This 97-nucleotide RNA from Solanum tuberosum belongs to the Rfam family "Small nucleolar RNA R32/R81/Z41". The family's RNA type in Rfam is C/D-box small nucleolar RNA.
RNA sequence: GAAUGAAAAUGAUGAACAUAAGGAGAAGUGAUGAUCAAUUUUGUUUCAAAUGAUCCAAAAAUAUAUCCUUAUUCGCUACGUUCUUUCUGAUUCAUUC
Dot-bracket structure: ...((((...................................................................................))))...
Numbered sequence: 001g002a003a004u005g006a007a008a009a010u011g012a013u014g015a016a017c018a019u020a021a022g023g024a025g026a027a028g029u030g031a032u033g034a035u036c037a038a039u040u041u042u043g044u045u046u047c048a049a050a051u052g053a054u055c056c057a058a059a060a061a062u063a064u065a066u067c068c069u070u071a072u073u074c075g076c077u078a079c080g081u082u083c084u085u086u087c088u089g090a091u092u093c094a095u096u097c
Stems, first nucleotide, its partner, number of pairs: 004094004
Taxonomically the source falls in Solanum (Eukaryota, eudicotyledons, Pentapetalae, Solanaceae). The match comes from Rfam's covariance-model search (63 bits).